[Rfam]
L31-Actinobacteria ribosomal protein leader: a 46-nucleotide RNA.
The family is grouped with related families in Rfam's "Ribosomal Protein L31 Leader clan".
Rfam's curators put it in the seed alignment.

RNA sequence: GCGGUUCCGGUUCACGUCAGGCGCCUCGCCCGACGACCCGGCGACC
Dot-bracket structure: ..(((.((((....((((.((((...)))).))))..))))..)))